[Rfam]
RNA sequence: UCAUACGAGGAUCGCCAUCAGUCAGCGCGUUGCGCCCACUGGUGCGAUUGUC
Numbered sequence: 001u002c003a004u005a006c007g008a009g010g011a012u013c014g015c016c017a018u019c020a021g022u023c024a025g026c027g028c029g030u031u032g033c034g035c036c037c038a039c040u041g042g043u044g045c046g047a048u049u050g051u052c
Stems, first nucleotide, its partner, number of pairs: 016044007025035004

Rfam assigns this 52-nucleotide RNA from Planktotalea frisia to the family "ffh sRNA".
A reference for the family is Meyer et al. (2009), "Identification of candidate structured RNAs in the marine organism 'Candidatus Pelagibacter ubique'", BMC Genomics.
Lineage of the source: Bacteria > Pseudomonadati > Pseudomonadota > Alphaproteobacteria > Planktotalea.